The family of this 101-nucleotide RNA sequence from Aidingimonas halophila is "t44 RNA". This family consists of a number of bacterial RNA genes of between 135 and 170 bases in length. On this family, see Tjaden et al., Nucleic Acids Res 2002: "Transcriptome analysis of Escherichia coli using high-density oligonucleotide probe arrays". A search with the family's covariance model found it, with a score of 70 bits.
RNA sequence: GCAAAAUGCCUGAAAUCACACACAUACACCGGCACAUGGUCCCGGGUGCCGUCCAGGCGGAUGCCUGUCGGUCGGAUCCAUGGGGUGUAUGGAGGCCUAAC
Number, nucleotide and partner (000 for none) at each position: 001g000002c000003a000004a000005a000006a000007u000008g000009c000010c000011u000012g000013a000014a000015a000016u000017c000018a000019c000020a000021c000022a000023c091024a090025u089026a088027c087028a086029c085030c084031g000032g000033c000034a000035c082036a081037u080038g079039g078040u076041c075042c074043c000044g000045g000046g000047u000048g072049c071050c070051g069052u000053c000054c000055a000056g000057g000058c000059g000060g000061a000062u000063g000064c000065c000066u000067g000068u000069c051070g050071g049072u048073c000074g042075g041076a040077u000078c039079c038080a037081u036082g035083g000084g030085g029086u028087g027088u026089a025090u024091g023092g000093a000094g000095g000096c000097c000098u000099a000100a000101c000